Notes: A member of the RNA family "Guanidine-II riboswitch aptamer (mini-ykkC)" from Shewanella sp. MR-7, 49 nucleotides long.

RNA sequence: GCUUAGGGACGACCUUAAAUACGCCGAUAUCAAUUUGGGGACGACCCCG
Numbered sequence: 001g002c003u004u005a006g007g008g009a010c011g012a013c014c015u016u017a018a019a020u021a022c023g024c025c026g027a028u029a030u031c032a033a034u035u036u037g038g039g040g041a042c043g044a045c046c047c048c049g
Stems, first nucleotide, its partner, number of pairs: 001020001003018006036049005

It is one of the family's seed sequences. The source organism's lineage runs through Bacteria, Gammaproteobacteria, Alteromonadales, Shewanellaceae and Shewanella.